[Rfam]
RNA sequence: GCCCCGGCCAUCCCCCCGAGCCGGGUAAGACGGCCCGCAUCGAUCCCCCCUGAUGCGGGCCGUCGCUC
Numbered sequence: 001g002c003c004c005c006g007g008c009c010a011u012c013c014c015c016c017c018g019a020g021c022c023g024g025g026u027a028a029g030a031c032g033g034c035c036c037g038c039a040u041c042g043a044u045c046c047c048c049c050c051u052g053a054u055g056c057g058g059g060c061c062g063u064c065g066c067u068c
Base pairs, nucleotide, nucleotide: 003025004024005023006022007021008020029064030063031062032061033060034059035058036057037056038055039054040053041052
The record is a 68-nucleotide RNA sequence from Corynebacterium kroppenstedtii, which matches "6C RNA" in Rfam.
The literature on the family includes a 2007 paper in Nucleic Acids Res by Weinberg et al., "Identification of 22 candidate structured RNAs in bacteria using the CMfinder comparative genomics pipeline".
By type it is a cis-regulatory element.